[Rfam]
RNA sequence: GCACUUGUCUGGCUAGAGGAGGCACCAUGAUCACGAAGAUGGUUUUCCCAGGGCGAGGCUUCUCCAUUGCACUCCAGAUGUGCUGACCCCUGUGAUUUCCCCAAAUGUUGGAAGUUCAAUUGCAUAAUUUGUAGUAGUGAGGAGCUGCGUUCGCACUCUCUCC
Number, nucleotide and partner (000 for none) at each position: 001g000002c000003a000004c000005u000006u000007g000008u000009c000010u000011g000012g123013c122014u000015a120016g049017a000018g048019g047020a046021g045022g044023c000024a043025c042026c041027a040028u039029g000030a000031u000032c000033a000034c000035g000036a000037a000038g000039a028040u027041g026042g025043u024044u022045u021046u020047c019048c018049c016050a091051g090052g089053g088054c000055g087056a000057g084058g083059c082060u000061u080062c000063u078064c077065c000066a000067u000068u000069g000070c000071a000072c000073u000074c000075c000076a000077g064078a063079u000080g061081u000082g059083c058084u057085g000086a000087c055088c053089c052090c051091u050092g000093u118094g117095a116096u114097u113098u112099c000100c111101c110102c000103a000104a000105a000106u000107g000108u000109u000110g101111g100112a098113a097114g096115u000116u095117c094118a093119a000120u015121u000122g013123c012124a000125u000126a000127a000128u000129u000130u000131g000132u000133a000134g000135u000136a000137g000138u000139g000140a000141g163142g162143a161144g160145c000146u000147g156148c000149g154150u000151u000152c000153g000154c149155a000156c147157u000158c000159u000160c144161u143162c142163c141

The record is a 163-nucleotide sequence from Carlito syrichta, which matches "U1 spliceosomal RNA" in Rfam. NCBI's taxonomy places the organism under Eukaryota, Theria, Boreoeutheria, Tarsiidae, Carlito. The family's RNA type in Rfam is spliceosomal small nuclear RNA.